[Rfam]
Nucleotides: 267
Stems, first nucleotide, its partner, number of pairs: 001267006009057003012030004017025003034054005063258007072249003079243002082240001084238005093230001096227005104220002106217003115211002118208005123200006129191002132189003136185001139180004148173004156165003
Number, partner (000 for none) and nucleotide at each position: 001267c002266c003265g004264u005263g006262c007000u008000a009057g010056g011055c012030g013029g014028g015027g016000a017025a018024u019023u020000a021000g022000c023019g024018g025017u026000g027015c028014c029013c030012u031000g032000u033000a034054c035053c036052c037051g038050c039000a040000a041000u042000c043000c044000g045000c046000u047000c048000u049000a050038g051037c052036g053035g054034g055011g056010c057009c058000g059000a060000a061000c062000g063258c064257u065256c066255g067254a068253c069252c070000g071000a072249g073248g074247g075000u076000c077000g078000u079243g080242g081000c082240c083000a084238u085237c086236g087235g088234g089000g090000c091000c092000a093230g094000u095000a096227c097226g098225c099224c100223g101000c102000g103000g104220g105219c106217g107216g108215u109000g110000u111000u112000g113000a114000c115211g116210g117000c118208c119207a120206g121205g122204u123200c124199c125198c126197g127196c128195g129191c130190a131000a132189u133188g134187c135000g136185c137000g138000u139180c140179c141178g142177c143000g144000a145000a146000u147000c148173a149172g150171g151170u152000c153000a154000g155000g156165u157164c158163c159000g160000g161000a162000a163158g164157g165156a166000a167000g168000c169000a170151g171150c172149c173148u174000u175000a176000a177142g178141c179140g180139g181000u182000g183000c184000c185136g186000a187134g188133c189132a190130u191129g192000u193000g194000c195128c196127g197126c198125g199124g200123g201000u202000a203000a204122g205121c206120c207119u208118g209000a210116c211115c212000c213000g214000a215108g216107c217106c218000a219105g220104c221000c222000a223100c224099g225098g226097c227096g228000g229000g230093c231000a232000c233000g234088c235087c236086c237085g238084g239000g240082g241000a242080c243079c244000a245000u246000u247074c248073u249072c250000g251000a252069g253068g254067u255066c256065g257064g258063g259000c260000c261000c262006g263005c264004a265003c266002g267001g